[Rfam]
RNA: PreQ1 (pre queuosine) riboswitch aptamer
RNA sequence: GCUACCGUGGUUCGUAACCAUCCCACGCAAAAAAACUAGUAGAG
Numbered sequence: 001g002c003u004a005c006c007g008u009g010g011u012u013c014g015u016a017a018c019c020a021u022c023c024c025a026c027g028c029a030a031a032a033a034a035a036c037u038a039g040u041a042g043a044g
Stems, first nucleotide, its partner, number of pairs: 006027005